[Rfam]
RNA: Streptomyces RNA 3920
RNA sequence: GAUAGGUCCCUGCCGCUACUGUGAUUGGACAUUGACAUUGAGUCAACUAGCCUGGUUGGCGCGGUUCUUGACGCACGGAACCGAGGGGCGGUCCGAACCACGAGGGGGGAGGCUCGGACCGCCCACA
Number, nucleotide and partner (000 for none) at each position: 001g014002a000003u012004a011005g010006g000007u000008c000009c000010c005011u004012g003013c000014c001015g051016c050017u049018a048019c000020u000021g032022u031023g030024a000025u000026u000027g000028g000029a000030c023031a022032u021033u045034g044035a043036c042037a000038u000039u000040g000041a000042g036043u035044c034045a033046a000047c000048u018049a017050g016051c015052c000053u000054g000055g000056u000057u000058g000059g074060c073061g072062c000063g000064g069065u000066u000067c000068u000069u064070g000071a000072c061073g060074c059075a000076c083077g082078g000079a000080a000081c000082c077083g076084a000085g000086g000087g123088g122089c121090g120091g119092u118093c117094c116095g115096a114097a000098c112099c111100a000101c108102g000103a000104g000105g000106g000107g000108g101109g000110a000111g099112g098113c000114u096115c095116g094117g093118a092119c091120c090121g089122c088123c087124c000125a000126c000127a000